[Rfam]
RNA sequence: CCGUGCUAGACGGGGAAUUAGCGGUGCCCUGUAACCUGCAACCCGCUAUAGCAGGGUCGAAUUCCUGAGCUGAGGGUUUAUCCUGUGAGGUCUGGCCAGGAUAAGUGGUGUAGAAGUCUGGGUCCUGCGCAAUAAGAGGCCUUGAACCGUGUCAGGUCCGGGAGGAAGCAGCACUAAGAGGUUUAUCUUAUGUGCCGCGGGGUAGCCUGGAUGGAGCUAACUAUCCUGGUAACGCUCGGGGGAUAUUCUCGAAGCCAGGUGCACGG
Numbered sequence: 001c002c003g004u005g006c007u008a009g010a011c012g013g014g015g016a017a018u019u020a021g022c023g024g025u026g027c028c029c030u031g032u033a034a035c036c037u038g039c040a041a042c043c044c045g046c047u048a049u050a051g052c053a054g055g056g057u058c059g060a061a062u063u064c065c066u067g068a069g070c071u072g073a074g075g076g077u078u079u080a081u082c083c084u085g086u087g088a089g090g091u092c093u094g095g096c097c098a099g100g101a102u103a104a105g106u107g108g109u110g111u112a113g114a115a116g117u118c119u120g121g122g123u124c125c126u127g128c129g130c131a132a133u134a135a136g137a138g139g140c141c142u143u144g145a146a147c148c149g150u151g152u153c154a155g156g157u158c159c160g161g162g163a164g165g166a167a168g169c170a171g172c173a174c175u176a177a178g179a180g181g182u183u184u185a186u187c188u189u190a191u192g193u194g195c196c197g198c199g200g201g202g203u204a205g206c207c208u209g210g211a212u213g214g215a216g217c218u219a220a221c222u223a224u225c226c227u228g229g230u231a232a233c234g235c236u237c238g239g240g241g242g243a244u245a246u247u248c249u250c251g252a253a254g255c256c257a258g259g260u261g262c263a264c265g266g
Base pairs, nucleotide, nucleotide: 001266002265003264004263005262006261009058010057011056012030013029014028015027017025018024019023035055036054037053038052039051064259065258066257067256069255070254071253074250075249076248080244081243082242083241084240086238087237088236089235093231094230097228098227099226100225101224102223105221106220107218108217109216116212117211118210119209120208121207122206123205124201125200126199127198128197129196130192131191133190134189135188136187137186138183139182140181141180142179143178149174150173151172152171157166158165159164